RNA sequence: UCGUGUGCCAUGAUGUUACCAAACUGUUUUGGACUAGAGUUUCUGAUCUGGAGUGCAAGCCAGCAUUGAAGAAACCACUCUUGUCUGUUUGAACACGCUA
Dot-bracket structure: (.(((((................................((((....((((........))))....))))......................))))).)

Rfam assigns this 100-nucleotide RNA from Physcomitrium patens to the family "Small nucleolar RNA Z157/R69/R10". The literature on the family includes a 2003 paper in Nucleic Acids Res by Chen et al., "The high diversity of snoRNAs in plants: identification and comparative study of 120 snoRNA genes from Oryza sativa". Rfam 15.1 lists 836 matches to the family in 232 species. The base pairs follow the family's consensus structure, which was predicted with PFOLD. Its family is annotated with RNA processing and nucleolus in the Gene Ontology.